The record is an 84-nucleotide sequence, which matches "dinG RNA" in Rfam. By type it is a small RNA. The base pairs follow the family's consensus structure, which is taken from published work. The sequence is in the family's curated seed alignment.
[Rfam]
RNA sequence: CAUGGUACUUCUGCUGAGAACCAGCAGCCCUGAAAAAUGGGAGAAUGCACACCCCUGUUUGAGAAAGAACAGGGGGCGGCUUUU
Number, nucleotide and partner (000 for none) at each position: 001c000002a000003u000004g000005g000006u000007a000008c000009u000010u000011c027012u026013g025014c024015u023016g000017a000018g000019a000020a000021c000022c000023a015024g014025c013026a012027g011028c041029c040030c039031u036032g000033a000034a000035a000036a031037a000038u000039g030040g029041g028042a084043g083044a082045a081046u000047g080048c079049a000050c000051a000052c076053c000054c000055c072056u071057g070058u069059u068060u000061g000062a000063g000064a000065a000066a000067g000068a059069a058070c057071a056072g055073g000074g000075g000076g052077c000078g000079g048080c047081u045082u044083u043084u042